The family of this 85-nucleotide sequence from Neobacillus massiliamazoniensis is "c-di-GMP-I riboswitch aptamer". A search with the family's covariance model found it, with a score of 77 bits. Lineage of the source: Bacteria > Bacillota > Bacilli > Bacillaceae > Neobacillus.
RNA sequence: AAUUGAAAAAGGCAAACUUAUCGAAAGGUAAAGGACGCAAAGCUACGAGUCUAAGGUCAUUGGCUAGGAUAGUCGGGUUGCCAAA
Numbered sequence: 001a002a003u004u005g006a007a008a009a010a011g012g013c014a015a016a017c018u019u020a021u022c023g024a025a026a027g028g029u030a031a032a033g034g035a036c037g038c039a040a041a042g043c044u045a046c047g048a049g050u051c052u053a054a055g056g057u058c059a060u061u062g063g064c065u066a067g068g069a070u071a072g073u074c075g076g077g078u079u080g081c082c083a084a085a
Stems, first nucleotide, its partner, number of pairs: 012038002017033002019030004041079004046075003049070003056064003